[Rfam]
RNA: JUMPstart RNA
Organism: Paramixta manurensis
Nucleotides: 036
Base pairs, nucleotide, nucleotide: 006023007022008021009020010019
Number, partner (000 for none) and nucleotide at each position: 001000c002000a003000g004000c005000g006023u007022u008021g009020g010019u011000a012000g013000c014000u015000g016000a017000g018000a019010g020009c021008c022007a023006g024000g025000g026000g027000c028000g029000g030000u031000a032000g033000c034000g035000u036000g